[Rfam]
RNA sequence: GCCCUGGGCUUGUGCUUGGGGAGUGAAUGAUGGGUUCUGACCCCCAUGCACCCCUGUGGGCCCCUGGCAUCACUGGCCCCAUCCUUCACCCCUGCCAACCACGCUUGCCCUGUGCCU
Number, nucleotide and partner (000 for none) at each position: 001g115002c114003c000004c112005u000006g110007g109008g108009c107010u000011u103012g102013u101014g100015c000016u000017u094018g093019g092020g091021g090022a000023g089024u088025g087026a086027a085028u000029g083030a082031u081032g080033g079034g078035u000036u000037c000038u000039g077040a000041c076042c075043c000044c000045c000046a070047u069048g068049c067050a000051c000052c000053c000054c000055u000056g000057u000058g000059g000060g000061c000062c000063c000064c000065u000066g000067g049068c048069a047070u046071c000072a000073c000074u000075g042076g041077c039078c034079c033080c032081a031082u030083c029084c000085u027086u026087c025088a024089c023090c021091c020092c019093u018094g017095c000096c000097a000098a000099c000100c014101a013102c012103g011104c000105u000106u000107g009108c008109c007110c006111u000112g004113u000114g002115c001116c000117u000